[Rfam]
RNA sequence: GCUGGGCCCAGUUGGGACCAGUCAUGGGCAAAAUAAAUAUUUUUUUGUCCACUGUUGCAGUCUUCCUAGAGUAAAGUGGAGGUCUCUGUCUGCUUUAGGACAGCCAGCUAAAUCAGAUCGUUCCCCUCCUUACACC
Numbered sequence: 001g002c003u004g005g006g007c008c009c010a011g012u013u014g015g016g017a018c019c020a021g022u023c024a025u026g027g028g029c030a031a032a033a034u035a036a037a038u039a040u041u042u043u044u045u046u047g048u049c050c051a052c053u054g055u056u057g058c059a060g061u062c063u064u065c066c067u068a069g070a071g072u073a074a075a076g077u078g079g080a081g082g083u084c085u086c087u088g089u090c091u092g093c094u095u096u097a098g099g100a101c102a103g104c105c106a107g108c109u110a111a112a113u114c115a116g117a118u119c120g121u122u123c124c125c126c127u128c129c130u131u132a133c134a135c136c
Base pairs, nucleotide, nucleotide: 004066005065006064009060011058012057025051026050027049028048029047033043078129079128080127081126082125086120088118089117090116092114094112095111096110097109098108
Shown here is a 136-nucleotide RNA from Brachypodius melanocephalos, a member of the family "Small Cajal body specific RNA 3". Rfam 15.1 lists 642 matches to the family in 535 species. scaRNAs are a specific class of small nuclear RNAs which localise to the Cajal bodies and guide the modification of RNA polymerase II transcribed spliceosomal RNAs U1, U2, U4, U5 and U12. The family's RNA type in Rfam is small Cajal body RNA. The base pairs follow the family's consensus structure, which was predicted with RNAalifold. For this family Rfam cites "RNomics: an experimental approach that identifies 201 candidates for novel, small, non-messenger RNAs in mouse" (Huttenhofer et al., EMBO J, 2001). Rfam links the family to the GO terms RNA processing, Cajal body and nucleolus.